[Rfam]
RNA sequence: CCCCGGCCCGGUGUUGAUGCCCCGGUCCGGGGGCCUUUUCUGACUGCAACGAGGGUUUGCUCGUG
Numbered sequence: 001c002c003c004c005g006g007c008c009c010g011g012u013g014u015u016g017a018u019g020c021c022c023c024g025g026u027c028c029g030g031g032g033g034c035c036u037u038u039u040c041u042g043a044c045u046g047c048a049a050c051g052a053g054g055g056u057u058u059g060c061u062c063g064u065g
Stems, first nucleotide, its partner, number of pairs: 001032006008025004